[Rfam]
RNA sequence: UGAUCCGAAGCCGAGCUCUGCCAGCGGAUCAGUCGGCGAGUCACCUUCUGGCAGAGGCGGGGGAACCACUAACGGCUGUUGAUCCAACAGCCUUGGGGUGAAGUCCGCUAGCGGCAAGCAACAAUCCACGAGGGCGCCCUUGGAUGACCCUGUGUCUGGAUGCUUGCACCGGCGGACCGGGUCUUUGAUCUCUCUGACCCGAAUCCGACAGCUAACUUCGCAGGCUAUCCAGAGAGGAACC
Dot-bracket structure: ........((((...(((((((((.......................)))))))))((((((....((.........................))(((.....((((((.............................................................))))))..((((..............))))...))).........)))))).))))...............
Numbered sequence: 001u002g003a004u005c006c007g008a009a010g011c012c013g014a015g016c017u018c019u020g021c022c023a024g025c026g027g028a029u030c031a032g033u034c035g036g037c038g039a040g041u042c043a044c045c046u047u048c049u050g051g052c053a054g055a056g057g058c059g060g061g062g063g064a065a066c067c068a069c070u071a072a073c074g075g076c077u078g079u080u081g082a083u084c085c086a087a088c089a090g091c092c093u094u095g096g097g098g099u100g101a102a103g104u105c106c107g108c109u110a111g112c113g114g115c116a117a118g119c120a121a122c123a124a125u126c127c128a129c130g131a132g133g134g135c136g137c138c139c140u141u142g143g144a145u146g147a148c149c150c151u152g153u154g155u156c157u158g159g160a161u162g163c164u165u166g167c168a169c170c171g172g173c174g175g176a177c178c179g180g181g182u183c184u185u186u187g188a189u190c191u192c193u194c195u196g197a198c199c200c201g202a203a204u205c206c207g208a209c210a211g212c213u214a215a216c217u218u219c220g221c222a223g224g225c226u227a228u229c230c231a232g233a234g235a236g237g238a239a240c241c
Stems, first nucleotide, its partner, number of pairs: 009226004016056009057221006067095002096206003104176006179200004